[Rfam]
RNA: mir-75 microRNA precursor family
RNA sequence: UGCGAGACCGAAUUGCAGUCGGUUGCAAGCUUCAAUACAGACAAUGGUUCUUGAUAUUAAAGCUACCAACCGCCUUCAAAUCGUGCAUCGCG
Number, nucleotide and partner (000 for none) at each position: 001u000002g091003c090004g089005a088006g000007a000008c000009c083010g082011a081012a000013u079014u078015g077016c000017a075018g074019u000020c072021g071022g070023u069024u068025g067026c000027a000028a064029g063030c062031u061032u060033c000034a058035a057036u056037a055038c053039a052040g051041a000042c000043a000044a000045u000046g000047g000048u000049u000050c000051u040052u039053g038054a000055u037056a036057u035058u034059a000060a032061a031062g030063c029064u028065a000066c000067c025068a024069a023070c022071c021072g020073c000074c018075u017076u000077c015078a014079a013080a000081u011082c010083g009084u000085g000086c000087a000088u005089c004090g003091c002092g000